[Rfam]
This 98-nucleotide sequence belongs to the Rfam family "skipping-rope RNA".
The sequence is in the family's curated seed alignment.
The family's RNA type in Rfam is small RNA.

Nucleotides: 098
Base pairs, nucleotide, nucleotide: 001098002097003096004095005094006093007092008091011033012032013031014030015029023084024083026081035065037054038053070090071089072088073087074086
Number, partner (000 for none) and nucleotide at each position: 001098g002097u003096u004095a005094u006093u007092c008091g009000a010000g011033g012032u013031g014030g015029a016000a017000a018000a019000u020000u021000u022000c023084g024083u025000a026081c027000a028000a029015u030014c031013c032012a033011c034000a035065c036000g037054c038053c039000g040000a041000u042000g043000g044000c045000u046000u047000g048000a049000c050000a051000a052000a053038g054037g055000g056000a057000a058000a059000c060000c061000u062000u063000g064000a065035g066000a067000g068000a069000u070090g071089c072088a073087g074086g075000a076000g077000a078000a079000u080000g081026g082000g083024a084023c085000g086074c087073c088072u089071g090070c091008c092007g093006a094005a095004u096003a097002a098001c